The record is a 97-nucleotide sequence from Brachypodium distachyon, which matches "Small nucleolar RNA R44/J54/Z268 family" in Rfam.
RNA sequence: UUAGCAUAUGGCGACAAGCAAGACAGGGACUCUGCCGCACCCGAUUUCAAAUCGGGGACGCAUGAUGUAUUCCGUCUAGGGGAAUCUCUGAUGCUAA
Dot-bracket structure: .(((((.....................................................................................))))).
Rfam classes the family as a C/D-box small nucleolar RNA. Its family is annotated with RNA processing and nucleolus in the Gene Ontology. A search with the family's covariance model found it, with a score of 56 bits.